[Rfam]
RNA sequence: CGUCAACAAUCAAGCAGGUAUGUAUGCUUGGUUAGUCUAACCUUCUACGUCCUGUUGGAAGGUUAGGCGACACCGUCAAAUUGCGGGGACCUCCUUAGAGCCUCUACCACACCUCUUACCUAGAAAUAGGCACGAGUCGUAAUAGUUGUAGGGGAUUGGAAAAUCCGCAGCCAAGUCCUUCUUACUGCUUUCGCGGUGAUGGAUGCAGUUCACAGACUAGACGGCGGUGGGGGGCUAUCAGUUAGUCAUAGCCUCAUAAGAUAUAGUCGAUUCACAUCUGAAAGGAUGUG
Numbered sequence: 001c002g003u004c005a006a007c008a009a010u011c012a013a014g015c016a017g018g019u020a021u022g023u024a025u026g027c028u029u030g031g032u033u034a035g036u037c038u039a040a041c042c043u044u045c046u047a048c049g050u051c052c053u054g055u056u057g058g059a060a061g062g063u064u065a066g067g068c069g070a071c072a073c074c075g076u077c078a079a080a081u082u083g084c085g086g087g088g089a090c091c092u093c094c095u096u097a098g099a100g101c102c103u104c105u106a107c108c109a110c111a112c113c114u115c116u117u118a119c120c121u122a123g124a125a126a127u128a129g130g131c132a133c134g135a136g137u138c139g140u141a142a143u144a145g146u147u148g149u150a151g152g153g154g155a156u157u158g159g160a161a162a163a164u165c166c167g168c169a170g171c172c173a174a175g176u177c178c179u180u181c182u183u184a185c186u187g188c189u190u191u192c193g194c195g196g197u198g199a200u201g202g203a204u205g206c207a208g209u210u211c212a213c214a215g216a217c218u219a220g221a222c223g224g225c226g227g228u229g230g231g232g233g234g235c236u237a238u239c240a241g242u243u244a245g246u247c248a249u250a251g252c253c254u255c256a257u258a259a260g261a262u263a264u265a266g267u268c269g270a271u272u273c274a275c276a277u278c279u280g281a282a283a284g285g286a287u288g289u290g
Base pairs, nucleotide, nucleotide: 071229072228073227074226075225077223082169083168084167085166086165087164092160093159094158170209171208175204176203177202178201183198184197185196186195187194213269215268216267217266218265219264231255232254233253234252235251236250237249238248275288276287277286278285279284
RNA: Group I catalytic intron
Organism: Eutypa lata